[Rfam]
Nucleotides: 063
Stems, first nucleotide, its partner, number of pairs: 010025004016054006033044004
Number, partner (000 for none) and nucleotide at each position: 001000a002000u003000u004000a005000u006000c007000u008000u009000u010025a011024g012023g013022g014000a015000u016054g017053a018052a019051g020050c021049u022013c023012c024011c025010u026000g027000u028000g029000a030000a031000u032000u033044g034043c035042u036041g037000g038000u039000a040000a041036c042035a043034g044033c045000u046000g047000a048000u049021g050020g051019c052018u053017u054016c055000u056000a057000c058000g059000u060000u061000a062000a063000u